Overview: Shown here is a 140-nucleotide RNA from Rhodamnia argentea, a member of the family "MIR396 microRNA precursor family". A reference for the family is Sunkar et al. (2005), "Cloning and characterization of microRNAs from rice", Plant Cell. Rfam links the family to the GO terms miRNA-mediated post-transcriptional gene silencing and RISC complex. The base pairs follow the family's consensus structure, which was predicted with WAR. Lineage of the source: Eukaryota > Euphyllophyta > Spermatophyta > Myrteae > Rhodamnia. It scores 93 bits against the family's covariance model.

RNA sequence: UGUCAUGCUUUUCCACAGCUUUCUUGAACUUCUUAUCUUCCAGUCUUUUGAUCUCUCUCUCUCUCUCUCUCCCUCUCUCUCUAAAAAGAUUGAACAAACCAUCCUUAGAAGCUCAAGAAAGCUGUGGGAAAACAUGGCAA
Numbered sequence: 001u002g003u004c005a006u007g008c009u010u011u012u013c014c015a016c017a018g019c020u021u022u023c024u025u026g027a028a029c030u031u032c033u034u035a036u037c038u039u040c041c042a043g044u045c046u047u048u049u050g051a052u053c054u055c056u057c058u059c060u061c062u063c064u065c066u067c068u069c070u071c072c073c074u075c076u077c078u079c080u081c082u083a084a085a086a087a088g089a090u091u092g093a094a095c096a097a098a099c100c101a102u103c104c105u106u107a108g109a110a111g112c113u114c115a116a117g118a119a120a121g122c123u124g125u126g127g128g129a130a131a132a133c134a135u136g137g138c139a140a
Stems, first nucleotide, its partner, number of pairs: 003137005013127003017123006024116004029111005